[Rfam]
RNA: mir-30 microRNA precursor family
RNA sequence: UGAGCAACUGUAAACAUCCUCGACUGGAAGCUGUGAAGCCAUAGAUGGGCUUUCAGUCGGAUGUUUGCAGCUGCCUA
Numbered sequence: 001u002g003a004g005c006a007a008c009u010g011u012a013a014a015c016a017u018c019c020u021c022g023a024c025u026g027g028a029a030g031c032u033g034u035g036a037a038g039c040c041a042u043a044g045a046u047g048g049g050c051u052u053u054c055a056g057u058c059g060g061a062u063g064u065u066u067g068c069a070g071c072u073g074c075c076u077a
Base pairs, nucleotide, nucleotide: 002076004074005073006072008070009069010068011067012066013065014064015063016062017061018060019059023057024056025055026054027053028052029051030050031049032048